[Rfam]
RNA sequence: GCGAGUCAGAGCACAACACGCUGCUACGGCAGAGGAAACUCCUCCCUCUAUACAGGAAAUGUGAUCUGGAGAUAGAUGAUCAGAGAUGGUCGGCAACAGAGCAGAAAAAAUUCCACCUGGCGUACUAUGAUGGUUAAGCCUGAGAUUUCCAGGAAGUGAAAUGAAAGAUCUGUCCCACAUGGAGCAAAGCCAAACAGAACCUAAAGAUCCUGUACUUGGUUCAGGUAGGCUGCAAAGCGAAAUAUUGUGAAAACAAAAGGAGGGUUACUCCUGACACGC
Dot-bracket structure: (((.((((((((((((....((((....))))....[[[.[[[[[((((.[[[[[[..((((((((((....)))))(((((....)))))((...((((..........(((..(((((...........((.....))........)))))....)))........)))).)))))))))))...((((.....(((((.......]]]]]]...))))).....)))).............))))).........]]]]]]]].)).))))).)))
Notes
Archaeal RNase P: a 279-nucleotide RNA sequence from Nitrosopumilus sp. b1. On this family, see Frank and Pace, Annu Rev Biochem 1998: "Ribonuclease P: unity and diversity in a tRNA processing ribozyme". Rfam's curators write: Ribonuclease P (RNase P) is a ubiquitous endoribonuclease, found in archaea, bacteria and eukarya as well as chloroplasts and mitochondria. Its best characterised activity is the generation of mature 5'-ends of tRNAs by cleaving the 5'-leader elements of precursor-tRNAs. Cellular RNase Ps are ribonucleoproteins. A search with the family's covariance model found it, with a score of 182 bits. By type it is a ribozyme. The family is grouped with related families in Rfam's "RNaseP clan".